[Rfam]
RNA: mir-33 microRNA precursor family
RNA sequence: CUGGGGUGCAUUGUAGUUGCAUUGCAGAUAGAUAUGAUACUGCAAUGCUUCUGCCGUGCAAACCCAG
Numbered sequence: 001c002u003g004g005g006g007u008g009c010a011u012u013g014u015a016g017u018u019g020c021a022u023u024g025c026a027g028a029u030a031g032a033u034a035u036g037a038u039a040c041u042g043c044a045a046u047g048c049u050u051c052u053g054c055c056g057u058g059c060a061a062a063c064c065c066a067g
Base pairs, nucleotide, nucleotide: 001067002066003065004064006063007060008059009058010057011056013054014053015052016051019048021046022045023044024043025042026041027040